RNA: Group II catalytic intron D1-D4-5
Organism: Priestia filamentosa
RNA sequence: GAUAACUGUUCAGACAAGUGAGAGGAAUGAAGGAGUAACGACCUGAAACUCUCCCAGUGAGAUUCCCGACAGCAUACGCUAGGCGUAGCGUGAUGUUGGAAGCAGGGUAAAAAAUGCAAUCACUAUCCGAAGUGCCCUACAGGGCAACCGAAAGCCAUUCGGAAUAAUAAACCAAAUGGAACUGAUAAAGUAUUGUAUGCUGUCAACCGA
Numbered sequence: 001g002a003u004a005a006c007u008g009u010u011c012a013g014a015c016a017a018g019u020g021a022g023a024g025g026a027a028u029g030a031a032g033g034a035g036u037a038a039c040g041a042c043c044u045g046a047a048a049c050u051c052u053c054c055c056a057g058u059g060a061g062a063u064u065c066c067c068g069a070c071a072g073c074a075u076a077c078g079c080u081a082g083g084c085g086u087a088g089c090g091u092g093a094u095g096u097u098g099g100a101a102g103c104a105g106g107g108u109a110a111a112a113a114a115u116g117c118a119a120u121c122a123c124u125a126u127c128c129g130a131a132g133u134g135c136c137c138u139a140c141a142g143g144g145c146a147a148c149c150g151a152a153a154g155c156c157a158u159u160c161g162g163a164a165u166a167a168u169a170a171a172c173c174a175a176a177u178g179g180a181a182c183u184g185a186u187a188a189a190g191u192a193u194u195g196u197a198u199g200c201u202g203u204c205a206a207c208c209g210a
Stems, first nucleotide, its partner, number of pairs: 018054001020053005032044002055202004065107003070098005075092007114198005124187004128150002134145004154183001